[Rfam]
RNA sequence: CGGUGGGGAUCUGGUCCGGUGAGAUGAAGUGGAUGUGGGUGUCGAUGCCGCCGGCGGUGAGGAUUUUCCGUUCGCCGGCGAUGAUUUCGGUGCCGGCCCCGAUGAUGAUGUCCACGCCGUCGGUGAUCUGCGGGUUUCCGGCCUUGCCGAUCCGGAGGAUGUGGCCGUCCCGGAGCGCCACAUCCGCUUUGUAGAUGCCGGUGUAGUCCAGGAUCACCGCGUUGGUGAUCACGGUGUCCGGAAUGUCCUCCUGCCGGCCGUCCCCGUCCCGGGUAGCCUGGCCGUUCUGGCCCAUGCCGUCGCGGAUCA
Numbered sequence: 001c002g003g004u005g006g007g008g009a010u011c012u013g014g015u016c017c018g019g020u021g022a023g024a025u026g027a028a029g030u031g032g033a034u035g036u037g038g039g040u041g042u043c044g045a046u047g048c049c050g051c052c053g054g055c056g057g058u059g060a061g062g063a064u065u066u067u068c069c070g071u072u073c074g075c076c077g078g079c080g081a082u083g084a085u086u087u088c089g090g091u092g093c094c095g096g097c098c099c100c101g102a103u104g105a106u107g108a109u110g111u112c113c114a115c116g117c118c119g120u121c122g123g124u125g126a127u128c129u130g131c132g133g134g135u136u137u138c139c140g141g142c143c144u145u146g147c148c149g150a151u152c153c154g155g156a157g158g159a160u161g162u163g164g165c166c167g168u169c170c171c172g173g174a175g176c177g178c179c180a181c182a183u184c185c186g187c188u189u190u191g192u193a194g195a196u197g198c199c200g201g202u203g204u205a206g207u208c209c210a211g212g213a214u215c216a217c218c219g220c221g222u223u224g225g226u227g228a229u230c231a232c233g234g235u236g237u238c239c240g241g242a243a244u245g246u247c248c249u250c251c252u253g254c255c256g257g258c259c260g261u262c263c264c265c266g267u268c269c270c271g272g273g274u275a276g277c278c279u280g281g282c283c284g285u286u287c288u289g290g291c292c293c294a295u296g297c298c299g300u301c302g303c304g305g306a307u308c309a
Stems, first nucleotide, its partner, number of pairs: 002308002006303001008301002012158001015155002018076006030053003034050002037048001039046002057069001059067001077148002081144001083142001085140001089138002092135002094130003102124001103122004107117001164291004173287004177282002185221003190216002200209002224278002228274001230272001234270001236268001
RNA: 5' ureB small RNA